This 299-nucleotide RNA sequence belongs to the Rfam family "Archaeal RNase P".
The literature on the family includes a 1998 paper in Annu Rev Biochem by Frank and Pace, "Ribonuclease P: unity and diversity in a tRNA processing ribozyme".
The family is grouped with related families in Rfam's "RNaseP clan".
Rfam describes the family as follows. Ribonuclease P (RNase P) is a ubiquitous endoribonuclease, found in archaea, bacteria and eukarya as well as chloroplasts and mitochondria. Its best characterised activity is the generation of mature 5'-ends of tRNAs by cleaving the 5'-leader elements of precursor-tRNAs.
It is annotated as a ribozyme.
The base pairs follow the family's consensus structure, which is taken from published work.
Rfam's curators put it in the seed alignment.
[Rfam]
RNA sequence: GGGUGCAGGAGGACUGCUGACAGACUUCGAGUCUGAGGAAAGUCCCCUCUCCACAGUGCAGGUGGUCGACACAAGUCGAGGUUCAGAGAUGAGUCGGUCAAUGGUGCAGAAACGAACGAUAUGUGGUGUGUACAAUGAAUCUGAAAAGACGAGGUUGCCACAAUGUCGAUGAGACGAGCAACCACACUGGAGCAAGUCCAAACAGUCCCUUUGAGGCGGCACGUCUAGGGACAGGUAGGAUGCUUAGUUGAAUGCAGUCACCGGUAACGGGAACAGAAAGGGGCUUACUCCCUGCACCC
Dot-bracket structure: (((.(((((((((((((...(((((.....)))))....[[[.[[[[[((((...[[[[.((((.(((((....)))))(((((......)))))((....((.(...........((((.((((((............((......)).......)))))))..)))........).)).)).))))))))...((((.....(((((.........]]]].....))))).....))))............))))))...................]]]]]]]].)).))))).)))